Shown here is a 361-nucleotide RNA from Beijerinckia indica, a member of the family "Alphaproteobacteria transfer-messenger RNA". It is annotated as a non-coding RNA gene. Lineage of the source: Bacteria > Pseudomonadota > Hyphomicrobiales > Beijerinckiaceae > Beijerinckia indica subsp. indica. Bacterial tmRNA, also known as 10Sa RNA or SsrA, is named for its dual tRNA and mRNA-like properties. A search with the family's covariance model found it, with a score of 299 bits. Rfam links the family to the GO term RNA catabolic process.
RNA sequence: GGCCUUUUUAAAUUGGGCGAGACGCUUUAUAUAGAACCUGCCGCUCUGCGGCUAUGGCGAUAAACGGCUUCGAAAUAAGCUCUUCGGACCCGGGGGCGGUACCCGGCGCCUCCACCAAAGCCCAAAGGCUCGAUUUGGCCAUUGGUUUUUGGCGGGGGCGAAAUAGGUUCGACGGGGGGUGUAAAGGAUGACCUUUCGCUCGGCAUGGUUCCGCCGUCAUCGGGCCGAUUUUAUAGUUGCCAACGACAACUAUGCUCCGGUGGCCGUUGCCGCGUAAUGCGGUAAUAGUACCGAUUCAAAGCCCUUGUGGGUAGCACUUCAAGGCGGGGUUCGGAGGCACCUGGCAACAGAAGCCUCCACU
Numbered sequence: 001g002g003c004c005u006u007u008u009u010a011a012a013u014u015g016g017g018c019g020a021g022a023c024g025c026u027u028u029a030u031a032u033a034g035a036a037c038c039u040g041c042c043g044c045u046c047u048g049c050g051g052c053u054a055u056g057g058c059g060a061u062a063a064a065c066g067g068c069u070u071c072g073a074a075a076u077a078a079g080c081u082c083u084u085c086g087g088a089c090c091c092g093g094g095g096g097c098g099g100u101a102c103c104c105g106g107c108g109c110c111u112c113c114a115c116c117a118a119a120g121c122c123c124a125a126a127g128g129c130u131c132g133a134u135u136u137g138g139c140c141a142u143u144g145g146u147u148u149u150u151g152g153c154g155g156g157g158g159c160g161a162a163a164u165a166g167g168u169u170c171g172a173c174g175g176g177g178g179g180u181g182u183a184a185a186g187g188a189u190g191a192c193c194u195u196u197c198g199c200u201c202g203g204c205a206u207g208g209u210u211c212c213g214c215c216g217u218c219a220u221c222g223g224g225c226c227g228a229u230u231u232u233a234u235a236g237u238u239g240c241c242a243a244c245g246a247c248a249a250c251u252a253u254g255c256u257c258c259g260g261u262g263g264c265c266g267u268u269g270c271c272g273c274g275u276a277a278u279g280c281g282g283u284a285a286u287a288g289u290a291c292c293g294a295u296u297c298a299a300a301g302c303c304c305u306u307g308u309g310g311g312u313a314g315c316a317c318u319u320c321a322a323g324g325c326g327g328g329g330u331u332c333g334g335a336g337g338c339a340c341c342u343g344g345c346a347a348c349a350g351a352a353g354c355c356u357c358c359a360c361u
Base pairs, nucleotide, nucleotide: 040052041051042050043049044048056200057199058198059197060196066193067192068190070188071187080179081178082177084175085174086173090106091105092104093103094102107160108159109158110157111156112155113154201216202215203214204213206227207226208225210224211223212222327342328341329340330339333358334357335356336355337354338353